[Rfam]
RNA sequence: AUGCAUCCUUUGACAGACCUGGAGCAAAAACCCGUUGCUUCUCGGGUUCUUGUGGAGAUGCGACAGCAACCGGCUCCUUGCGCUUUCCGCCUGCCCGCCCCGUGGCAGUCCGGAUUGAAGAAGGGAGCACAAAG
Numbered sequence: 001a002u003g004c005a006u007c008c009u010u011u012g013a014c015a016g017a018c019c020u021g022g023a024g025c026a027a028a029a030a031c032c033c034g035u036u037g038c039u040u041c042u043c044g045g046g047u048u049c050u051u052g053u054g055g056a057g058a059u060g061c062g063a064c065a066g067c068a069a070c071c072g073g074c075u076c077c078u079u080g081c082g083c084u085u086u087c088c089g090c091c092u093g094c095c096c097g098c099c100c101c102g103u104g105g106c107a108g109u110c111c112g113g114a115u116u117g118a119a120g121a122a123g124g125g126a127g128c129a130c131a132a133a134g
Stems, first nucleotide, its partner, number of pairs: 002062006011052002016048004022040006075126005083117001086114004091108005